Shown here is a 176-nucleotide sequence from Vagococcus fluvialis, a member of the family "Lysine riboswitch aptamer".
RNA sequence: UACAAAUCUAGAGGUUGCGAAUUAUCAAGACAUUUAACAGAGCAUAAGGGUGCCAUGACGUUAAAUAUGAGGGGUUUUCGCCGAAAUGUAAAUGAGAUCCUUAACUCAUUUAUGUUGGGGCUAUGGUGAAUAACUAUGGCACUGUCUCAGUCUAACUGAGUUGCGCUACGAUUUUA
Number, nucleotide and partner (000 for none) at each position: 001u000002a000003c000004a000005a000006a000007u170008c000009u168010a167011g166012a000013g000014g000015u000016u000017g081018c080019g079020a078021a077022u000023u000024a075025u074026c073027a000028a000029g000030a000031c000032a066033u065034u064035u063036a062037a061038c060039a000040g000041a000042g000043c000044a000045u000046a000047a000048g000049g000050g000051u000052g000053c000054c000055a000056u000057g000058a000059c000060g038061u037062u036063a035064a034065a033066u032067a000068u000069g000070a000071g000072g000073g026074g025075u024076u000077u021078u020079c019080g018081c017082c000083g000084a000085a116086a115087u114088g113089u112090a111091a110092a109093u108094g107095a106096g105097a000098u000099c000100c000101u000102u000103a000104a000105c096106u095107c094108a093109u092110u091111u090112a089113u088114g087115u086116u085117g143118g142119g000120g140121c139122u138123a137124u136125g135126g134127u133128g000129a000130a000131u000132a000133a127134c126135u125136a124137u123138g122139g121140c120141a000142c118143u117144g000145u000146c160147u159148c158149a157150g156151u155152c000153u000154a000155a151156c150157u149158g148159a147160g146161u000162u000163g000164c000165g000166c011167u010168a009169c000170g007171a000172u000173u000174u000175u000176a000
The organism belongs to Vagococcus, within Bacteria.